A member of the RNA family "ybhL leader" from Aminobacter sp. J15, 62 nucleotides long. Gene Ontology term of the family: regulation of gene expression. By type it is a cis-regulatory leader. It scores 56 bits against the family's covariance model. Lineage of the source: Bacteria > Pseudomonadati > Pseudomonadota > Phyllobacteriaceae > Aminobacter.
RNA sequence: UAGGCAUGCUGGAGUUCCGCCAGCGGCGCCUGGGCGGUUGCCCGACACCCGACGGAACGCAA
Dot-bracket structure: ...........(.((((((.....((....((((......))))...))...)))))).)..